[Rfam]
Nucleotides: 492
Stems, first nucleotide, its partner, number of pairs: 006012002027073002030070003035060001037049004076320005082314001085310002092281002095278002098274002101271001108263004118254002121251001124246006132136001140220007149212001150185004155180002164177005186196003199211004221240006327444005340389004345382005353376005391424004396420002398417004448470005454465004
Number, partner (000 for none) and nucleotide at each position: 001000c002000u003000a004000g005000c006012c007011g008000u009000c010000g011007c012006g013000u014000c015000u016000u017000a018000a019000c020000g021000c022000g023000c024000a025000g026000c027073c028072c029000u030070g031069a032068a033000g034000g035060c036000c037049c038048c039047a040046c041000a042000c043000c044000u045000u046040g047039u048038g049037g050000a051000u052000c053000u054000u055000g056000c057000c058000g059000u060035g061000g062000g063000u064000a065000u066000g067000u068032u069031u070030c071000u072028g073027g074000c075000a076320u077319g078318u079317g080316u081000u082314u083000c084000u085310c086309a087000a088000g089000c090000c091000u092281g093280c094000a095278a096277c097000c098274g099273a100000a101271g102000c103000c104000g105000a106000a107000c108263a109262g110261c111260c112000a113000c114000a115000u116000g117000a118254a119253c120000a121251g122000u123000u124246u125245g126244a127243g128242c129241g130000u131000g132136g133000u134000a135000g136132c137000g138000c139000u140220g141219u142218g143217u144216g145215a146214g147000u148000u149212g150185g151184c152183g153182g154000u155180g156179g157000a158000u159000c160000c161000c162000c163000c164177u165176c166175g167174u168173g169000g170000u171000a172000a173168c174167a175166c176165g177164a178000g179156c180155c181000c182153c183152c184151g185150u186196g187195g188194c189000c190000a191000a192000a193000a194188g195187c196186c197000c198000a199211g200210u201209g202208u203000u204000u205000a206000c207000a208202g209201c210200a211199c212149c213000u214146c215145u216144c217143a218142c219141a220140u221240c222239c223238a224237g225236g226235a227000c228000g229000a230000c231000c232000c233000c234000a235226u236225c237224c238223u239222g240221g241129c242128g243127c244126u245125c246124a247000c248000u249000c250000u251121u252000a253119g254118u255000a256000g257000u258000a259000u260111g261110g262109c263108u264000u265000a266000g267000u268000a269000c270000g271101c272000a273099u274098u275000a276000g277096g278095u279000g280093g281092u282000a283000a284000g285000c286000c287000g288000a289000g290000c291000u292000c293000u294000c295000c296000c297000u298000c299000g300000g301000c302000c303000u304000u305000g306000u307000u308000c309086u310085g311000a312000a313000u314082g315000c316080a317079c318078a319077c320076a321000u322000g323000u324000c325000u326000a327444g328443g329442g330441g331440c332000u333000a334000a335000g336000g337000a338000u339000g340389u341388c342387c343386u344000a345382c346381a347380g348379g349378u350000a351000c352000c353376c354375g355374c356373a357372c358000g359000u360000a361000a362000c363000c364000u365000u366000c367000a368000g369000a370000g371000a372357g373356u374355g375354c376353g377000g378349a379348u380347c381346u382345g383000a384000g385000u386343a387342g388341g389340a390000g391424a392423c393422c394421g395000u396420g397419g398417u399416g400415c401414a402000c403000u404000g405000c406000u407000u408000u409000a410000c411000a412000g413000a414401u415400g416399c417398a418000g419397c420396c421394c422393g423392g424391u425000u426000u427000a428000a429000a430000a431000a432000g433000c434000g435000u436000c437000u438000a439000u440331g441330c442329c443328c444327c445000u446000a447000c448470a449469g450468g451467g452466u453000a454465g455464c456463g457462g458000u459000g460000g461000g462457c463456c464455g465454c466452g467451c468450c469449c470448u471000u472000u473000c474000c475000u476000u477000u478000u479000a480000a481000a482000a483000c484000u485000a486000c487000u488000u489000g490000u491000u492000c